[Rfam]
RNA sequence: GCACUGAACUUACCCUGUCCUUGCAAUUUAGUGCUGGGAAGGGUUACUUGGUGCUAGAGAAAUGUAGAGGAAAUCCAGACGGAAUAUCAAUUUAUCUAAUGUUCUGUCUCUACACCUCUGCAACAUUG
Dot-bracket structure: (((((......(((((..((...............))..))))).....))))).........((((((.......((((((((.....(((.....))).))))))))......)))))).......
Numbered sequence: 001g002c003a004c005u006g007a008a009c010u011u012a013c014c015c016u017g018u019c020c021u022u023g024c025a026a027u028u029u030a031g032u033g034c035u036g037g038g039a040a041g042g043g044u045u046a047c048u049u050g051g052u053g054c055u056a057g058a059g060a061a062a063u064g065u066a067g068a069g070g071a072a073a074u075c076c077a078g079a080c081g082g083a084a085u086a087u088c089a090a091u092u093u094a095u096c097u098a099a100u101g102u103u104c105u106g107u108c109u110c111u112a113c114a115c116c117u118c119u120g121c122a123a124c125a126u127u128g
Stems, first nucleotide, its partner, number of pairs: 001054005012044005019037002064121006077109008090100003
Shown here is a 128-nucleotide sequence from Leptobrachium leishanense, a member of the family "Small nucleolar RNA SNORA55".
Pairs were carried over by alignment from the consensus structure, which was predicted with PFOLD.
Rfam describes the family as follows. ACA55 is a member of the H/ACA class of snoRNA that guide the sites of modification of uridines to pseudouridines.
By type it is an H/ACA-box small nucleolar RNA.
Its family is annotated with RNA processing and nucleolus in the Gene Ontology.